ZMP/ZTP riboswitch aptamer (pfl RNA motif): an 85-nucleotide sequence from Desulfonispora thiosulfatigenes.

RNA sequence: ACGUAAUCACAUGACUGGCGGAGAAAAAUGUGGAAUUAACCACGUGAAGUGUGAUUACUUGAAGCCGACCGCCUGGGCCAAGAAU
Numbered sequence: 001a002c003g004u005a006a007u008c009a010c011a012u013g014a015c016u017g018g019c020g021g022a023g024a025a026a027a028a029u030g031u032g033g034a035a036u037u038a039a040c041c042a043c044g045u046g047a048a049g050u051g052u053g054a055u056u057a058c059u060u061g062a063a064g065c066c067g068a069c070c071g072c073c074u075g076g077g078c079c080a081a082g083a084a085u
Base pairs, nucleotide, nucleotide: 003058004057005056006055007054008053009052010051011050012049015046017073018072019071020070021069030043031042032041033040064078065077066076
Gene Ontology terms of the family: regulation of purine nucleotide biosynthetic process and one-carbon metabolic process.